[Rfam]
RNA: Glycine riboswitch aptamer
RNA sequence: UCGUCUCGCGCGGGAGAGUUCCGUGACGGCCAGUCACGGACGCCGAAGGAGCAACACCUCUCCGUCAACCUCUCAGGCCCCCGGACCGCGCCGAGAUC
Numbered sequence: 001u002c003g004u005c006u007c008g009c010g011c012g013g014g015a016g017a018g019u020u021c022c023g024u025g026a027c028g029g030c031c032a033g034u035c036a037c038g039g040a041c042g043c044c045g046a047a048g049g050a051g052c053a054a055c056a057c058c059u060c061u062c063c064g065u066c067a068a069c070c071u072c073u074c075a076g077g078c079c080c081c082c083g084g085a086c087c088g089c090g091c092c093g094a095g096a097u098c
Stems, first nucleotide, its partner, number of pairs: 006093001008091006020040008042078003045074002049072003056065002